[Rfam]
RNA: isrA Hfq binding RNA
RNA sequence: AUCUUCACCGUGACACCCCGUCCGGUAUCAAAUCCGGCCUCUUUCAGCCAGUCGCCCUUAAGGUGCAGGCUGGGAUGUUGUGAAUAAUACCGGGCUAUACCGGUUUUGCGGUCCUGGUGGCGGGCUCUG
Numbered sequence: 001a002u003c004u005u006c007a008c009c010g011u012g013a014c015a016c017c018c019c020g021u022c023c024g025g026u027a028u029c030a031a032a033u034c035c036g037g038c039c040u041c042u043u044u045c046a047g048c049c050a051g052u053c054g055c056c057c058u059u060a061a062g063g064u065g066c067a068g069g070c071u072g073g074g075a076u077g078u079u080g081u082g083a084a085u086a087a088u089a090c091c092g093g094g095c096u097a098u099a100c101c102g103g104u105u106u107u108g109c110g111g112u113c114c115u116g117g118u119g120g121c122g123g124g125c126u127c128u129g
Stems, first nucleotide, its partner, number of pairs: 029080003032076004049072004053065004107122003